Shown here is a 97-nucleotide sequence from Glycine max, a member of the family "mir-166 microRNA precursor family". Rfam 15.1 lists 2,599 matches to the family in 229 species. From the family's description: This family represents the plant microRNA (miRNA) precursor mir-166. A reference for the family is Ambros (2001), "microRNAs: tiny regulators with great potential", Cell. A search with the family's covariance model found it, with a score of 79 bits. Rfam links the family to the GO terms miRNA-mediated post-transcriptional gene silencing and RISC complex. The base pairs follow the family's consensus structure, which was predicted with PFOLD.

RNA sequence: GUUGAGGGGAAUGUCGUUUGGUUCGAGAUCAUUCAUGCAAGUAGUCUCAGACAUAACUCUUCUGAGUGAUUUCGGACCAGGCUUCAUUCCCCUCAGC
Numbered sequence: 001g002u003u004g005a006g007g008g009g010a011a012u013g014u015c016g017u018u019u020g021g022u023u024c025g026a027g028a029u030c031a032u033u034c035a036u037g038c039a040a041g042u043a044g045u046c047u048c049a050g051a052c053a054u055a056a057c058u059c060u061u062c063u064g065a066g067u068g069a070u071u072u073c074g075g076a077c078c079a080g081g082c083u084u085c086a087u088u089c090c091c092c093u094c095a096g097c
Stems, first nucleotide, its partner, number of pairs: 001097013016082006024074003